[Rfam]
RNA sequence: AAUGGAUAGGGGGCCAUAGAAGGAACGUUCAUGUCGCGGCCCCUGUCAGGUAUCUAUUUACCUGCAAAUCCUUCU
Numbered sequence: 001a002a003u004g005g006a007u008a009g010g011g012g013g014c015c016a017u018a019g020a021a022g023g024a025a026c027g028u029u030c031a032u033g034u035c036g037c038g039g040c041c042c043c044u045g046u047c048a049g050g051u052a053u054c055u056a057u058u059u060a061c062c063u064g065c066a067a068a069u070c071c072u073u074c075u
Base pairs, nucleotide, nucleotide: 010043011042012041013040014039015038018075019074020073021072022071023070024069026036027035047064048063049062050061051060052059